RNA sequence: UUUCAGGAAAGCUAGGGUUCCGGUCCCCACGGGGAUGAUUACUGGUCCGAGAGCAUUCCGGCCUUUCACCCCAGGGUGAAUGCUGAUCAGCCAACCCGAUGUAACACAUGGGCAAACUGGACGGCCAUGGGCUCCACGGCGGGACAAAAGCCCGGGAGGU
Numbered sequence: 001u002u003u004c005a006g007g008a009a010a011g012c013u014a015g016g017g018u019u020c021c022g023g024u025c026c027c028c029a030c031g032g033g034g035a036u037g038a039u040u041a042c043u044g045g046u047c048c049g050a051g052a053g054c055a056u057u058c059c060g061g062c063c064u065u066u067c068a069c070c071c072c073a074g075g076g077u078g079a080a081u082g083c084u085g086a087u088c089a090g091c092c093a094a095c096c097c098g099a100u101g102u103a104a105c106a107c108a109u110g111g112g113c114a115a116a117c118u119g120g121a122c123g124g125c126c127a128u129g130g131g132c133u134c135c136a137c138g139g140c141g142g143g144a145c146a147a148a149a150g151c152c153c154g155g156g157a158g159g160u
Stems, first nucleotide, its partner, number of pairs: 007058003011054002015048002020045002022042001023039003028034001060133005135155001137158001141153003